[Rfam]
RNA sequence: AUUAAUAAGCGGAGACUAUUUAUGUGUCUUUGUUUAGAUGAACAUGGAGGUAUAGCAAAUAGGCCGAGAUAUCGUUUCAGUCGUCAUUUAUUGGGUUGACGAUUUGAUUGUUGCUCGUCCAUAU
Dot-bracket structure: .....(((((((((((.........))))))))))).........................((.((((..((((.....(((((((.((....)).))))))).)))).....)))).))....
Numbered sequence: 001a002u003u004a005a006u007a008a009g010c011g012g013a014g015a016c017u018a019u020u021u022a023u024g025u026g027u028c029u030u031u032g033u034u035u036a037g038a039u040g041a042a043c044a045u046g047g048a049g050g051u052a053u054a055g056c057a058a059a060u061a062g063g064c065c066g067a068g069a070u071a072u073c074g075u076u077u078c079a080g081u082c083g084u085c086a087u088u089u090a091u092u093g094g095g096u097u098g099a100c101g102a103u104u105u106g107a108u109u110g111u112u113g114c115u116c117g118u119c120c121a122u123a124u
Stems, first nucleotide, its partner, number of pairs: 006036011062120002065117004071108004080103007088095002

A member of the RNA family "Small nucleolar RNA snoR111" from Cannabis sativa, 124 nucleotides long. Lineage of the source: Eukaryota > Streptophyta > Magnoliopsida > Cannabaceae > Cannabis. A search with the family's covariance model found it, with a score of 105 bits.